[Rfam]
RNA sequence: CGCUGAAUCCGGACCGUCCACCAGCGACACGGGCAGUCCGGAGCCGGGGAACCAACCACACCUGGGGUGAAUCCCCUCCGAGUGGGCGGUCAGGCGCUCUGCCGAAGGGCAGGGACCCGUCCGUCACGGAAGAGGGGUAGGGCAAGUCGUGCCCGAACCCGUCAGCUCACCCGGUAGGCGU
Numbered sequence: 001c002g003c004u005g006a007a008u009c010c011g012g013a014c015c016g017u018c019c020a021c022c023a024g025c026g027a028c029a030c031g032g033g034c035a036g037u038c039c040g041g042a043g044c045c046g047g048g049g050a051a052c053c054a055a056c057c058a059c060a061c062c063u064g065g066g067g068u069g070a071a072u073c074c075c076c077u078c079c080g081a082g083u084g085g086g087c088g089g090u091c092a093g094g095c096g097c098u099c100u101g102c103c104g105a106a107g108g109g110c111a112g113g114g115a116c117c118c119g120u121c122c123g124u125c126a127c128g129g130a131a132g133a134g135g136g137g138u139a140g141g142g143c144a145a146g147u148c149g150u151g152c153c154c155g156a157a158c159c160c161g162u163c164a165g166c167u168c169a170c171c172c173g174g175u176a177g178g179c180g181u
Base pairs, nucleotide, nucleotide: 001180002179003178004177008042009041010040011039012038013037014036043175044174045173046172047171048170053064054063065160066159067158073137074136075135076134077133078132140154141153142152143151